[Rfam]
RNA sequence: GGUUUUGGGUCGAGAGGUCCAGGGUCAGGUGGGGUAGGAGUCAGCAGAGGUCGUAGUACUUGUACGGGUUUUCCGGGGACACAUCUCCUCGUUAUUUGAAAGUGCAGGGAAGGGC
Numbered sequence: 001g002g003u004u005u006u007g008g009g010u011c012g013a014g015a016g017g018u019c020c021a022g023g024g025u026c027a028g029g030u031g032g033g034g035u036a037g038g039a040g041u042c043a044g045c046a047g048a049g050g051u052c053g054u055a056g057u058a059c060u061u062g063u064a065c066g067g068g069u070u071u072u073c074c075g076g077g078g079a080c081a082c083a084u085c086u087c088c089u090c091g092u093u094a095u096u097u098g099a100a101a102g103u104g105c106a107g108g109g110a111a112g113g114g115c
Stems, first nucleotide, its partner, number of pairs: 001026002004023008041048002050115003059108006